Z30 small nucleolar RNA: a 103-nucleotide sequence from Phrynocephalus forsythii. Gene Ontology terms of the family: nucleolus and RNA processing. The organism belongs to Phrynocephalus, within Eukaryota. A search with the family's covariance model found it, with a score of 87 bits. The family's consensus secondary structure was predicted with PFOLD.
[Rfam]
RNA sequence: UGGCAAUGAUGAGUGAAGUAUAGUCUGACCUGGUACUGCCACAACGGCGGCGACGCUUUUGGCUCUGACCAGGGUGUGAUCAUGCAAUCUUCUCUCUGAGCUC
Dot-bracket structure: ..((.................................((((..................))))....................................))..